[Rfam]
Nucleotides: 103
Base pairs, nucleotide, nucleotide: 001103003101004100005099006098007097008096009095010094011093012092013091014090015089016088018086019085020084021083022082023081024080033072034071035070036069037068038067039066041064042063043062048061049060050059051058
Number, partner (000 for none) and nucleotide at each position: 001103g002000c003101g004100c005099a006098a007097a008096g009095u010094c011093a012092c013091u014090u015089u016088g017000a018086g019085c020084g021083a022082c023081g024080a025000a026000u027000u028000a029000u030000u031000u032000u033072u034071c035070g036069u037068c038067g039066c040000g041064c042063a043062a044000a045000a046000u047000u048061g049060g050059u051058c052000g053000c054000g055000c056000a057000a058051g059050a060049c061048u062043u063042u064041g065000a066039g067038c068037g069036a070035c071034g072033a073000u074000g075000u076000a077000u078000u079000g080024u081023c082022g083021u084020c085019g086018c087000g088016c089015a090014a091013a092012g093011u094010g095009a096008u097007u098006u099005u100004g101003c102000a103001c